[Rfam]
RNA sequence: CAUGUGAUUUAGGUAGUUUCAUGUUGUUGGGGCUCCAUUUUCAAUCCCUACAACACGAAAGUGCCUUAAUUGCUCC
Numbered sequence: 001c002a003u004g005u006g007a008u009u010u011a012g013g014u015a016g017u018u019u020c021a022u023g024u025u026g027u028u029g030g031g032g033c034u035c036c037a038u039u040u041u042c043a044a045u046c047c048c049u050a051c052a053a054c055a056c057g058a059a060a061g062u063g064c065c066u067u068a069a070u071u072g073c074u075c076c
Stems, first nucleotide, its partner, number of pairs: 004073006011066005017060003022055006029048003

Overview: The family of this 76-nucleotide RNA from Polypterus senegalus is "mir-196 microRNA precursor family". Gene Ontology terms of the family: RISC complex and gene silencing by miRNA. The organism belongs to Polypterus, within Eukaryota. The literature on the family includes a 2003 paper in RNA by Lagos-Quintana et al., "New microRNAs from mouse and human".